[Rfam]
RNA sequence: UAAUGGGGUAGAGGCGCAAAACGAAUGAGUACAAUUGGGGAGCUGAUGGCUGGCUUAGAACCAAAUGGAAAGGUCAAUUUGCCGAAGCGCUUAUUUUGCCAUGAAAUAAGUGCUGGGUCGUUUGUGAACAAUGAACGAACUGUCACUACAUUCGUAGUGGAGGACUAUUCUAGAA
Numbered sequence: 001u002a003a004u005g006g007g008g009u010a011g012a013g014g015c016g017c018a019a020a021a022c023g024a025a026u027g028a029g030u031a032c033a034a035u036u037g038g039g040g041a042g043c044u045g046a047u048g049g050c051u052g053g054c055u056u057a058g059a060a061c062c063a064a065a066u067g068g069a070a071a072g073g074u075c076a077a078u079u080u081g082c083c084g085a086a087g088c089g090c091u092u093a094u095u096u097u098g099c100c101a102u103g104a105a106a107u108a109a110g111u112g113c114u115g116g117g118u119c120g121u122u123u124g125u126g127a128a129c130a131a132u133g134a135a136c137g138a139a140c141u142g143u144c145a146c147u148a149c150a151u152u153c154g155u156a157g158u159g160g161a162g163g164a165c166u167a168u169u170c171u172a173g174a175a
Base pairs, nucleotide, nucleotide: 006170007169008168009167010166011165016082017081018080019079020078023075024074032067033066035064036063037062038061086114087113088112089111090110091109092108093107094106095105096104097103115141116140118138119137120136121135122134123133124132125131143160144159145158146157147156148155149154
RNA: Lysine riboswitch aptamer